[Rfam]
Nucleotides: 089
Stems, first nucleotide, its partner, number of pairs: 001089005008082002012027001014025004028046006048061005064076003
Number, partner (000 for none) and nucleotide at each position: 001089g002088c003087c004086g005085g006000g007000a008082c009081g010000a011000u012027c013000c014025u015024c016023g017022g018000u019000g020000g021000u022017c023016c024015g025014a026000a027012g028046u029045g030044c031043a032042g033041g034000c035000u036000u037000c038000a039000a040000a041033c042032c043031u044030g045029u046028a047000g048061c049060c050059g051058a052057c053000u054000g055000a056000c057052g058051u059050c060049g061048g062000a063000a064076c065075g066074g067000u068000u069000c070000g071000a072000u073000u074066c075065c076064g077000c078000c079000a080000g081009c082008g083000a084000a085005c086004c087003g088002g089001c
A member of the RNA family "Selenocysteine transfer RNA" from Fasciolopsis buskii, 89 nucleotides long. Its Rfam clan is "tRNA clan". The match comes from Rfam's covariance-model search (61 bits).